[Rfam]
RNA sequence: AGGCAGGUUGGCUCUGUCGCUCAUAUCAAACUGUAUGAGAGGAAAGUCCGGGCAACAUAGAGUAUCGCACUUGUGAAACUGCAAGAUAGCCGUAAGGUUAUGCGCACCGUAGAAGAAAAUAACCGCCCAUAAGGGUAAGGGUGAGAAGGUGGUGUAAGAGACCACCGCGUCGGCAGUGAUGUUCGGCGGUCAGUGCGGGCUGCGAGUUGCAAGACCAAAUAGACCGAUGAGGGCUCUGCGCAAGCGGGGUCGAGAGGGUUACUCGCCUGAGUCGGAGGGUAGGUUGCUGAUGAGUCGUUAUAGCAAUAUGCGACCAAGAUAAAUGACAGAGAUCUUUUCCUCGGGAAAGGUACAGAACCCGGCUUAUACGAUUUGCCUUAAA
Numbered sequence: 001a002g003g004c005a006g007g008u009u010g011g012c013u014c015u016g017u018c019g020c021u022c023a024u025a026u027c028a029a030a031c032u033g034u035a036u037g038a039g040a041g042g043a044a045a046g047u048c049c050g051g052g053c054a055a056c057a058u059a060g061a062g063u064a065u066c067g068c069a070c071u072u073g074u075g076a077a078a079c080u081g082c083a084a085g086a087u088a089g090c091c092g093u094a095a096g097g098u099u100a101u102g103c104g105c106a107c108c109g110u111a112g113a114a115g116a117a118a119a120u121a122a123c124c125g126c127c128c129a130u131a132a133g134g135g136u137a138a139g140g141g142u143g144a145g146a147a148g149g150u151g152g153u154g155u156a157a158g159a160g161a162c163c164a165c166c167g168c169g170u171c172g173g174c175a176g177u178g179a180u181g182u183u184c185g186g187c188g189g190u191c192a193g194u195g196c197g198g199g200c201u202g203c204g205a206g207u208u209g210c211a212a213g214a215c216c217a218a219a220u221a222g223a224c225c226g227a228u229g230a231g232g233g234c235u236c237u238g239c240g241c242a243a244g245c246g247g248g249g250u251c252g253a254g255a256g257g258g259u260u261a262c263u264c265g266c267c268u269g270a271g272u273c274g275g276a277g278g279g280u281a282g283g284u285u286g287c288u289g290a291u292g293a294g295u296c297g298u299u300a301u302a303g304c305a306a307u308a309u310g311c312g313a314c315c316a317a318g319a320u321a322a323a324u325g326a327c328a329g330a331g332a333u334c335u336u337u338u339c340c341u342c343g344g345g346a347a348a349g350g351u352a353c354a355g356a357a358c359c360c361g362g363c364u365u366a367u368a369c370g371a372u373u374u375g376c377c378u379u380a381a382a
Stems, first nucleotide, its partner, number of pairs: 001378010011367001012331007020039007044365003048362005053209004060264004065205005070085005086101001088099004102200002107198005123140002125136004148166006167191001168188005173182003213285004224275005256268004294314004299310004
RNA: Bacterial RNase P class A